[Rfam]
RNA: ODC internal ribosome entry site (IRES)
RNA sequence: AUUCCCACUGCUGCACCAAGAGGACACCCAUCUUUUGCUGGACUUGGAAUUCCUAGAGAGCUACUUUUGUGAAAAGUUGGCAAUAAUUUAUUUAGAUUCCAUCUUAGUUUUCCCUGUAAGUAUGCAUGACUUUGCAGGUUAAUCUAGUUAAGAGUUACUAAGAAUUU
Dot-bracket structure: .....(...(((...(((((((.(..(............(((........)))......).).)))))).)...)))..)....(((((.(....((((....................................................))))....).))))).